[Rfam]
RNA sequence: GCUUCAUUUCUCACACUCUCUCACCGGUCGGAUUGUCGAGAGAGUGUGCGAAAUGAAAUGA
Numbered sequence: 001g002c003u004u005c006a007u008u009u010c011u012c013a014c015a016c017u018c019u020c021u022c023a024c025c026g027g028u029c030g031g032a033u034u035g036u037c038g039a040g041a042g043a044g045u046g047u048g049c050g051a052a053a054u055g056a057a058a059u060g061a
Base pairs, nucleotide, nucleotide: 001059003057004056005055006054007053010050012048013047014046015045016044017043019041020040021039022038

Record summary:
The record is a 61-nucleotide RNA from Pristionchus pacificus, which matches "mir-8364 microRNA precursor family" in Rfam. The source organism's lineage runs through Eukaryota, Opisthokonta, Eumetazoa, Chromadorea and Pristionchus.